[Rfam]
RNA sequence: UUCUCCGAUGAUUUAAAAAUACUUUCGUUCUUCUGAAGUUACAAUGUGGAAGAACAAUUUGGAGACCUGAACUGAGGAGAU
Numbered sequence: 001u002u003c004u005c006c007g008a009u010g011a012u013u014u015a016a017a018a019a020u021a022c023u024u025u026c027g028u029u030c031u032u033c034u035g036a037a038g039u040u041a042c043a044a045u046g047u048g049g050a051a052g053a054a055c056a057a058u059u060u061g062g063a064g065a066c067c068u069g070a071a072c073u074g075a076g077g078a079g080a081u
Stems, first nucleotide, its partner, number of pairs: 003079004
Small nucleolar RNA Z159/U59: an 81-nucleotide RNA from Setaria italica. Clan: SNORD59 clan. The family's consensus secondary structure was predicted with PFOLD. By type it is a C/D-box small nucleolar RNA. Taxonomically the source falls in Setaria (Eukaryota, Spermatophyta, Liliopsida, Paniceae).